[Rfam]
RNA sequence: CAAGGGACAGUGUUGGUGGGACCAACACCUGUCAAUAUAAUUGGGAGAAAUAUUUUAACACAGAUAGGGUGCACACUGGUAUUCCCUAUCAGUUCAAUUGAAACUGUCCCAGU
Numbered sequence: 001c002a003a004g005g006g007a008c009a010g011u012g013u014u015g016g017u018g019g020g021a022c023c024a025a026c027a028c029c030u031g032u033c034a035a036u037a038u039a040a041u042u043g044g045g046a047g048a049a050a051u052a053u054u055u056u057a058a059c060a061c062a063g064a065u066a067g068g069g070u071g072c073a074c075a076c077u078g079g080u081a082u083u084c085c086c087u088a089u090c091a092g093u094u095c096a097a098u099u100g101a102a103a104c105u106g107u108c109c110c111a112g113u
Base pairs, nucleotide, nucleotide: 004110005109006108007107008106009105010104011103013101014100015099016098017097019095020094021093022092031059032058034056035055037053038052039051063090064089065088066087067086068085
Shown here is a 113-nucleotide sequence from Lentivirus simimdef, a member of the family "HIV pol-1 stem loop".
NCBI's taxonomy places the organism under Viruses, Riboviria, Pararnavirae, Retroviridae, Lentivirus simimdef.
The literature on the family includes a 2008 paper in RNA by Wang et al., "Evidence of a novel RNA secondary structure in the coding region of HIV-1 pol gene".
The family's RNA type in Rfam is cis-regulatory element.
Rfam 15.1 lists 34 matches to the family in 21 species.